The record is an 88-nucleotide RNA sequence from Paenibacillus sp. Root444D2, which matches "c-di-GMP-I riboswitch aptamer" in Rfam.
The base pairs follow the family's consensus structure, which is taken from published work.
It scores 66 bits against the family's covariance model.
A reference for the family is Weinberg et al. (2007), "Identification of 22 candidate structured RNAs in bacteria using the CMfinder comparative genomics pipeline", Nucleic Acids Res.
NCBI's taxonomy places the organism under Bacteria, Bacillati, Caryophanales, Paenibacillaceae, Paenibacillus.
RNA sequence: ACAACGGAAUGGCAAACCGAGCGAAAGCUUGGGACGCAAAGCUAAAGGGGCUCUCGUGCCUAAAGCAGAGUGCCAGCCAGCUGUCGAA
Dot-bracket structure: ...........((...((((((....))))))...))..((((...(((((.....(((.....)))....)))..))))))......